[Rfam]
RNA sequence: CCACUCGAAAUGGCUCUAAGGCCAGCCUGACUGGAGAUAGGUGGCGGGGUAGAGCACUAAUUGGGUGUUUAGGGGGAGAAAUCCCUCGGCACACUGUAAAACUCCGAACUCGUCACCAUCAUAGAAGGUCGGAGUGAGGGGCACGGGGUAAGCCUGUGUCCCGAAAGAGAAAUAACUCAGACUAUGGUUAAGGUCCCAAAAUGCUGGAUAAGUGUAAGGGAGUCAUUGGUCCAAGACACUGGGAAGGUGGGCUUAGAAGCAGCCACCCUUUAACGAGUUCGUAACAGAUCACCCAUCGAGAUCAAUGGCACCUAAAAUGGACGGGAAUUAAUCCAGCUACCGAUACCAUAGAACACCAUAACUUGGUGAUUGUGUAGAGUGGCGAUCUGGUAGGACAGAAGGGGGGACGUGAGUUCCUCUGGACCUACCAGAUAUGUGGAU
Numbered sequence: 001c002c003a004c005u006c007g008a009a010a011u012g013g014c015u016c017u018a019a020g021g022c023c024a025g026c027c028u029g030a031c032u033g034g035a036g037a038u039a040g041g042u043g044g045c046g047g048g049g050u051a052g053a054g055c056a057c058u059a060a061u062u063g064g065g066u067g068u069u070u071a072g073g074g075g076g077a078g079a080a081a082u083c084c085c086u087c088g089g090c091a092c093a094c095u096g097u098a099a100a101a102c103u104c105c106g107a108a109c110u111c112g113u114c115a116c117c118a119u120c121a122u123a124g125a126a127g128g129u130c131g132g133a134g135u136g137a138g139g140g141g142c143a144c145g146g147g148g149u150a151a152g153c154c155u156g157u158g159u160c161c162c163g164a165a166a167g168a169g170a171a172a173u174a175a176c177u178c179a180g181a182c183u184a185u186g187g188u189u190a191a192g193g194u195c196c197c198a199a200a201a202u203g204c205u206g207g208a209u210a211a212g213u214g215u216a217a218g219g220g221a222g223u224c225a226u227u228g229g230u231c232c233a234a235g236a237c238a239c240u241g242g243g244a245a246g247g248u249g250g251g252c253u254u255a256g257a258a259g260c261a262g263c264c265a266c267c268c269u270u271u272a273a274c275g276a277g278u279u280c281g282u283a284a285c286a287g288a289u290c291a292c293c294c295a296u297c298g299a300g301a302u303c304a305a306u307g308g309c310a311c312c313u314a315a316a317a318u319g320g321a322c323g324g325g326a327a328u329u330a331a332u333c334c335a336g337c338u339a340c341c342g343a344u345a346c347c348a349u350a351g352a353a354c355a356c357c358a359u360a361a362c363u364u365g366g367u368g369a370u371u372g373u374g375u376a377g378a379g380u381g382g383c384g385a386u387c388u389g390g391u392a393g394g395a396c397a398g399a400a401g402g403g404g405g406g407a408c409g410u411g412a413g414u415u416c417c418u419c420u421g422g423a424c425c426u427a428c429c430a431g432a433u434a435u436g437u438g439g440a441u
Stems, first nucleotide, its partner, number of pairs: 001382006011024005026134001027132006036120003040117008052105001053103002060097002063094001065092004072087006138162009167178003182351007192341003201338001203337006218312002222309010240295004245269003250264003275290001279288002353371001354368005383436001385433010401420008
Annotation:
The record is a 441-nucleotide part of an RNA from Candidatus Methanobinarius endosymbioticus, which matches "Archaeal large subunit ribosomal RNA" in Rfam. The base pairs follow the family's consensus structure, which is taken from published work. The source organism's lineage runs through Archaea, Methanobacteriota, Methanobacteriales, Methanobacteriaceae and Candidatus Methanobinarius.